[Rfam]
RNA: ylbH leader
RNA sequence: UCAAAAAAAACCUUGCGGAAAUGAACCCGCAAGGCCCUUUCCAGUUCCUUGCCUCCGCGCAGGGCGGAACAAGGAUCGGAAAGAAUAAAGAAAAGGGAGAGGAGAAACCGGAGGAAGAACUUAUGGGGAAACGUAAGUCUUCUCCGUCA
Numbered sequence: 001u002c003a004a005a006a007a008a009a010a011c012c013u014u015g016c017g018g019a020a021a022u023g024a025a026c027c028c029g030c031a032a033g034g035c036c037c038u039u040u041c042c043a044g045u046u047c048c049u050u051g052c053c054u055c056c057g058c059g060c061a062g063g064g065c066g067g068a069a070c071a072a073g074g075a076u077c078g079g080a081a082a083g084a085a086u087a088a089a090g091a092a093a094a095g096g097g098a099g100a101g102g103a104g105a106a107a108c109c110g111g112a113g114g115a116a117g118a119a120c121u122u123a124u125g126g127g128g129a130a131a132c133g134u135a136a137g138u139c140u141u142c143u144c145c146g147u148c149a
Stems, first nucleotide, its partner, number of pairs: 011034008035097005045084002109146004114142004119138005